[Rfam]
RNA sequence: UUAGGUAUAGACAGUUCCCCUCUGGUCAGAGCACCAACUCCGUACCGGAAAGCAAUAAGCCCGAUCUCACCAGUCGGGCUUUUUUGC
Numbered sequence: 001u002u003a004g005g006u007a008u009a010g011a012c013a014g015u016u017c018c019c020c021u022c023u024g025g026u027c028a029g030a031g032c033a034c035c036a037a038c039u040c041c042g043u044a045c046c047g048g049a050a051a052g053c054a055a056u057a058a059g060c061c062c063g064a065u066c067u068c069a070c071c072a073g074u075c076g077g078g079c080u081u082u083u084u085u086g087c
Base pairs, nucleotide, nucleotide: 021049022048023047024046025045026044029040030039031038054084055083057081058080059079061077062076063075064074065073
ArsR-gov region gene B: an 87-nucleotide RNA from Erwinia tracheiphila. The base pairs follow the family's consensus structure, which was predicted with RNAfold. A search with the family's covariance model found it, with a score of 59 bits. A reference for the family is Weel-Sneve et al. (2013), "Single transmembrane peptide DinQ modulates membrane-dependent activities", PLoS Genet. Rfam classes the family as an antisense RNA. Lineage of the source: Bacteria > Pseudomonadota > Enterobacterales > Erwiniaceae > Erwinia.